[Rfam]
RNA sequence: AUUGCAAUUUCAAGGCCAUAGCAGAAGUGCUUAUGAAGCAGCCAGUCAUAUUCCAAUGAAUCUGCAAAUGCUGCU
Numbered sequence: 001a002u003u004g005c006a007a008u009u010u011c012a013a014g015g016c017c018a019u020a021g022c023a024g025a026a027g028u029g030c031u032u033a034u035g036a037a038g039c040a041g042c043c044a045g046u047c048a049u050a051u052u053c054c055a056a057u058g059a060a061u062c063u064g065c066a067a068a069u070g071c072u073g074c075u
Base pairs, nucleotide, nucleotide: 014043015042016041020075021074022073023072024071026069027039028038047064048063050061051060052059053058
RNA: Mammalian CPEB3 ribozyme
Organism: Alligator sinensis